mir-344 microRNA precursor family: a 65-nucleotide RNA from Mesocricetus auratus. On this family, see Linsen et al., BMC Genomics 2010: "Small RNA expression and strain specificity in the rat".

[Rfam]
RNA sequence: UUUCCAGUCAGGCUCCUGGCUAAAGUCCAGCUUAUUGCUGGGUUUAGCCAAAGCCUGGCUGUAAA
Numbered sequence: 001u002u003u004c005c006a007g008u009c010a011g012g013c014u015c016c017u018g019g020c021u022a023a024a025g026u027c028c029a030g031c032u033u034a035u036u037g038c039u040g041g042g043u044u045u046a047g048c049c050a051a052a053g054c055c056u057g058g059c060u061g062u063a064a065a
Stems, first nucleotide, its partner, number of pairs: 007059003011055004017050008027041005

The base pairs follow the family's consensus structure, which was predicted with RNAalifold. Its family is annotated with miRNA-mediated post-transcriptional gene silencing and RISC complex in the Gene Ontology. It scores 69 bits against the family's covariance model.